[Rfam]
RNA sequence: AGUGUGACAUGUCCGUUUUGAUGGUAUACUCUGAUAUUUAUUUAUUAUUUAAUUGCUUUGGGAUAACGGGGUGUUACAAACAC
Number, nucleotide and partner (000 for none) at each position: 001a000002g000003u078004g077005u076006g075007a074008c073009a072010u071011g000012u070013c069014c068015g067016u066017u065018u000019u000020g000021a000022u000023g000024g000025u000026a000027u000028a000029c000030u000031c000032u000033g000034a000035u000036a000037u000038u000039u000040a000041u000042u000043u000044a000045u000046u000047a000048u000049u000050u000051a000052a000053u000054u000055g000056c000057u000058u000059u000060g000061g000062g000063a000064u000065a017066a016067c015068g014069g013070g012071g010072u009073g008074u007075u006076a005077c004078a003079a000080a000081c000082a000083c000
The record is an 83-nucleotide sequence from Medicago truncatula, which matches "MIR2617 microRNA precursor family" in Rfam. Its family is annotated with miRNA-mediated post-transcriptional gene silencing and RISC complex in the Gene Ontology. The family has 3 seed sequences and 1,174 matches in Rfam 15.1.